[Rfam]
A member of the RNA family "Glycine riboswitch aptamer" from Paracoccus sigandri, 90 nucleotides long.
Pairs were carried over by alignment from the consensus structure.
For this family Rfam cites "A glycine-dependent riboswitch that uses cooperative binding to control gene expression" (Mandal et al., Science, 2004).
From the family's description: This family represents the bacterial glycine riboswitch.
RNA sequence: GACAGGAAAUCGGGAGAAACCGGCCUCACGCCGGGACCGAAGGAGCAGCCGCCCCGGCAAACUCUCAGGUAAAAGGACCGUUUUCCCCAA
Numbered sequence: 001g002a003c004a005g006g007a008a009a010u011c012g013g014g015a016g017a018a019a020c021c022g023g024c025c026u027c028a029c030g031c032c033g034g035g036a037c038c039g040a041a042g043g044a045g046c047a048g049c050c051g052c053c054c055c056g057g058c059a060a061a062c063u064c065u066c067a068g069g070u071a072a073a074a075g076g077a078c079c080g081u082u083u084u085c086c087c088c089a090a
Stems, first nucleotide, its partner, number of pairs: 006085004011080003020034004036070003039066002043064003049057002